[Rfam]
RNA sequence: GUGUUGCUUUAUAAAGGAAUAGUUUUAAGUAAAGUGUGAGAUACUUUACUAGGCCUCGUGAAAGUGAACCUUUUGCUAAACACCAUCAAAUAGCGGAAACCCCUUAAAGCUAUUUUAACUAAAUGUAUGGGGUAACCAUUACAUGGCUCAGGUAAUGACUCGAGGUAUAGAAAAAUAAAAAUAGAUGCACAAAAGGAAAUAGGGCAUCCGCUGCCAAGCUGCUGGUAUUUAUACUAGGAGUGCAGCCCAUCGACUAAACGGUGGUGAGCGUUAAAAUUAUUGUUUUAAUGCUUAAGAUAUAGUCAGACCCUGCUUUAAAAAGUAUA
Number, nucleotide and partner (000 for none) at each position: 001g000002u000003g000004u000005u000006g000007c000008u000009u000010u000011a000012u000013a000014a000015a024016g023017g000018a000019a000020u000021a000022g000023u016024u015025u000026u000027a000028a000029g000030u000031a000032a000033a000034g000035u000036g000037u000038g000039a000040g000041a000042u000043a000044c000045u000046u000047u000048a000049c000050u000051a000052g000053g000054c000055c000056u000057c000058g000059u000060g000061a000062a000063a000064g000065u000066g000067a000068a000069c000070c000071u000072u000073u000074u000075g000076c000077u000078a000079a000080a000081c266082a265083c264084c263085a262086u000087c260088a000089a000090a000091u000092a212093g211094c210095g209096g208097a207098a000099a000100c000101c000102c204103c203104u202105u201106a200107a000108a000109g000110c000111u000112a000113u000114u000115u000116u000117a000118a000119c000120u000121a000122a000123a000124u000125g000126u000127a000128u000129g000130g000131g000132g000133u000134a000135a000136c000137c000138a000139u000140u000141a000142c000143a000144u000145g000146g000147c000148u000149c000150a000151g000152g000153u000154a000155a000156u000157g000158a000159c000160u000161c000162g000163a000164g000165g000166u000167a000168u000169a000170g000171a000172a000173a000174a000175a000176u000177a000178a000179a000180a000181a000182u000183a000184g000185a000186u000187g000188c000189a000190c000191a000192a000193a000194a000195g000196g000197a000198a000199a000200u106201a105202g104203g103204g102205c000206a000207u097208c096209c095210g094211c093212u092213g246214c245215c000216a000217a000218g241219c240220u239221g000222c000223u000224g235225g234226u233227a232228u000229u000230u000231a000232u227233a226234c225235u224236a000237g000238g000239a220240g219241u218242g000243c000244a000245g214246c213247c000248c000249a000250u305251c000252g304253a303254c302255u301256a300257a000258a000259c000260g087261g000262u085263g084264g083265u082266g081267a000268g291269c290270g289271u288272u287273a286274a285275a284276a283277u000278u000279a000280u000281u000282g000283u276284u275285u274286u273287a272288a271289u270290g269291c268292u000293u000294a000295a000296g000297a000298u000299a000300u256301a255302g254303u253304c252305a250306g000307a000308c000309c000310c000311u324312g323313c322314u321315u320316u000317a000318a000319a000320a315321a314322g313323u312324a311325u000326a000
A member of the RNA family "Group I catalytic intron" from Ophiocordyceps camponoti-leonardi, 326 nucleotides long.
The family's consensus secondary structure is taken from published work.
Rfam's curators write: Group I catalytic introns are large self-splicing ribozymes.
It scores 81 bits against the family's covariance model.
NCBI's taxonomy places the organism under Eukaryota, Dikarya, Ascomycota, Pezizomycotina, Ophiocordyceps.